[Rfam]
RNA sequence: GUUGCAAGUUCAAGGUUACAGCAGAACUGCUCACCAUGUGGCCCUGUCAGAUUCCAGUGAAUCUGUGAUUUCUCCU
Numbered sequence: 001g002u003u004g005c006a007a008g009u010u011c012a013a014g015g016u017u018a019c020a021g022c023a024g025a026a027c028u029g030c031u032c033a034c035c036a037u038g039u040g041g042c043c044c045u046g047u048c049a050g051a052u053u054c055c056a057g058u059g060a061a062u063c064u065g066u067g068a069u070u071u072c073u074c075c076u
Stems, first nucleotide, its partner, number of pairs: 014043004020076002023073004028038002048065007
The record is a 76-nucleotide RNA from Alligator mississippiensis, which matches "Mammalian CPEB3 ribozyme" in Rfam.
The base pairs follow the family's consensus structure, which is taken from published work.